[Rfam]
RNA sequence: CAAGGCUCUUGAUGGGCUUGGUAUCUCGGGCGCCGGCGGGUGUCCGGCGCUCUUGUGGUUACGUUGCUCCUGGGAGGAUGUAGCUAUGAGAA
Numbered sequence: 001c002a003a004g005g006c007u008c009u010u011g012a013u014g015g016g017c018u019u020g021g022u023a024u025c026u027c028g029g030g031c032g033c034c035g036g037c038g039g040g041u042g043u044c045c046g047g048c049g050c051u052c053u054u055g056u057g058g059u060u061a062c063g064u065u066g067c068u069c070c071u072g073g074g075a076g077g078a079u080g081u082a083g084c085u086a087u088g089a090g091a092a
Stems, first nucleotide, its partner, number of pairs: 001021001003019004008015002028051001030050007052090006059083007067076003

Record summary
The family of this 92-nucleotide sequence from Microvirga makkahensis is "Repression of heat shock gene expression (ROSE) element". By type it is an RNA thermoregulator. This family represents a 5' UTR cis-regulatory element found in heat shock mRNAs and is known as the ROSE (repression of heat shock gene expression) element. The ROSE element is a negative regulator of heat shock gene expression. The secondary structure is thought to be regulated by temperature. The family's consensus secondary structure is taken from published work. Gene Ontology terms of the family: response to temperature stimulus and regulation of translation.